[Rfam]
RNA sequence: GCGCCGGGACGACCCGGUCGCCUUCAUUCUUCCGGGGACGGCCCCG
Numbered sequence: 001g002c003g004c005c006g007g008g009a010c011g012a013c014c015c016g017g018u019c020g021c022c023u024u025c026a027u028u029c030u031u032c033c034g035g036g037g038a039c040g041g042c043c044c045c046g
Stems, first nucleotide, its partner, number of pairs: 001018002005016004033046005
Shown here is a 46-nucleotide RNA from Methyloversatilis sp. RAC08, a member of the family "Guanidine-II riboswitch aptamer (mini-ykkC)".
Simpler in structure and has fewer highly conserved nucleotide positions than the ykkC-yxkD leader.
Pairs were carried over by alignment from the consensus structure, which is taken from published work.
A search with the family's covariance model found it, with a score of 41 bits.